[Rfam]
RNA sequence: UCCGUUCCAUGUAAAUGACACACACGUAUCACAACGUUGAUCCGGGGUGCCCGGCCAGAGAUGGCAAGGGUCGGAGAGAUGGGUACGUGGAGGCCUAAC
Numbered sequence: 001u002c003c004g005u006u007c008c009a010u011g012u013a014a015a016u017g018a019c020a021c022a023c024a025c026g027u028a029u030c031a032c033a034a035c036g037u038u039g040a041u042c043c044g045g046g047g048u049g050c051c052c053g054g055c056c057a058g059a060g061a062u063g064g065c066a067a068g069g070g071u072c073g074g075a076g077a078g079a080u081g082g083g084u085a086c087g088u089g090g091a092g093g094c095c096u097a098a099c
Stems, first nucleotide, its partner, number of pairs: 023089008036080003041075004049071004
A member of the RNA family "t44 RNA" from Venatorbacter sp. C2-1, 99 nucleotides long. The family's consensus secondary structure was predicted with LocARNA. For this family Rfam cites "Transcriptome analysis of Escherichia coli using high-density oligonucleotide probe arrays" (Tjaden et al., Nucleic Acids Res, 2002).